RNA sequence: ACUCGGUUAUGGGUGUAUGGUGGACAGCGCCAGGGACAAGUUUGUUCACCUGUGUGUGGAUGGUGUUCAGCACCAAGGACAGCUAUAUGUGCUU
Numbered sequence: 001a002c003u004c005g006g007u008u009a010u011g012g013g014u015g016u017a018u019g020g021u022g023g024a025c026a027g028c029g030c031c032a033g034g035g036a037c038a039a040g041u042u043u044g045u046u047c048a049c050c051u052g053u054g055u056g057u058g059g060a061u062g063g064u065g066u067u068c069a070g071c072a073c074c075a076a077g078g079a080c081a082g083c084u085a086u087a088u089g090u091g092c093u094u
Base pairs, nucleotide, nucleotide: 005084006083007082008081010079018075019074020073021072022071026067027066028065029064030063031062032061034055036053037052038051040049041048